[Rfam]
RNA sequence: GCAGCUGUAACUUAUGAGACGCGCAAAUUUAUUUGCAAAAAUCAUGGGAUGCUACAAUGUGGAGAGGAUAUUCCAAUGCCUAACGUCCGUUCCCGUCUAUUGCAAGACACCAGUUACUGAAUGUGUUCUGUUGGAAAGAGAACAUAUUGAAGUAAUAAUGAACUGCAAACCGCCUCAGGCUGGAAACAGAGCAGGGUCAGUGGUCGCUGGUGUACGGUGCGAAGAUUACGGUUGAGCGGGCCAGGU
Numbered sequence: 001g002c003a004g005c006u007g008u009a010a011c012u013u014a015u016g017a018g019a020c021g022c023g024c025a026a027a028u029u030u031a032u033u034u035g036c037a038a039a040a041a042u043c044a045u046g047g048g049a050u051g052c053u054a055c056a057a058u059g060u061g062g063a064g065a066g067g068a069u070a071u072u073c074c075a076a077u078g079c080c081u082a083a084c085g086u087c088c089g090u091u092c093c094c095g096u097c098u099a100u101u102g103c104a105a106g107a108c109a110c111c112a113g114u115u116a117c118u119g120a121a122u123g124u125g126u127u128c129u130g131u132u133g134g135a136a137a138g139a140g141a142a143c144a145u146a147u148u149g150a151a152g153u154a155a156u157a158a159u160g161a162a163c164u165g166c167a168a169a170c171c172g173c174c175u176c177a178g179g180c181u182g183g184a185a186a187c188a189g190a191g192c193a194g195g196g197u198c199a200g201u202g203g204u205c206g207c208u209g210g211u212g213u214a215c216g217g218u219g220c221g222a223a224g225a226u227u228a229c230g231g232u233u234g235a236g237c238g239g240g241c242c243a244g245g246u
Stems, first nucleotide, its partner, number of pairs: 011048007078246003085241008093231004097224002100222005107213008116153003120148010131138002156160001162204005172197004180189003
RNA: Protozoan signal recognition particle RNA
Organism: Plasmodium knowlesi